[Rfam]
RNA sequence: AUAAAUCAAGGGCAUAAUCAUUGAAAAGUGAUGACGCAAAGCUAAAGGGGCCUCUGUAUAAUACACACAAGGCCAGCCAGCUGCCAUC
Numbered sequence: 001a002u003a004a005a006u007c008a009a010g011g012g013c014a015u016a017a018u019c020a021u022u023g024a025a026a027a028g029u030g031a032u033g034a035c036g037c038a039a040a041g042c043u044a045a046a047g048g049g050g051c052c053u054c055u056g057u058a059u060a061a062u063a064c065a066c067a068c069a070a071g072g073c074c075a076g077c078c079a080g081c082u083g084c085c086a087u088c
Stems, first nucleotide, its partner, number of pairs: 012037002017032006040082004047078002049074003056068002059065001
This 88-nucleotide sequence from Bacillus sp. T33-2 belongs to the Rfam family "c-di-GMP-I riboswitch aptamer". Taxonomically the source falls in Bacillus (Bacteria, Bacilli, Caryophanales, Bacillaceae). About the family: GEMM was predicted in a large-scale screen for bacterial structured RNA regulatory elements. Genes associated with GEMM are involved in a diverse array of functions, including chemotaxis regulation, signal transduction, secretion and chitin. A search with the family's covariance model found it, with a score of 63 bits.